[Rfam]
The family of this 93-nucleotide sequence is "PhotoRC-II RNA".

RNA sequence: UAACAUACCCACGCCUUACCAGGACUAAACAGCGUGGUAAAACAACAGUCCUUCAUACCCACGAUGGAGGGUGUCGUGGGAAUAUUUUAUUCG
Numbered sequence: 001u002a003a004c005a006u007a008c009c010c011a012c013g014c015c016u017u018a019c020c021a022g023g024a025c026u027a028a029a030c031a032g033c034g035u036g037g038u039a040a041a042a043c044a045a046c047a048g049u050c051c052u053u054c055a056u057a058c059c060c061a062c063g064a065u066g067g068a069g070g071g072u073g074u075c076g077u078g079g080g081a082a083u084a085u086u087u088u089a090u091u092c093g
Base pairs, nucleotide, nucleotide: 010036011035012034013033014032017031021052022051023050024049025048058080059079060078061077062076063075064074

Rfam's curators put it in the seed alignment. The family's RNA type in Rfam is cis-regulatory element.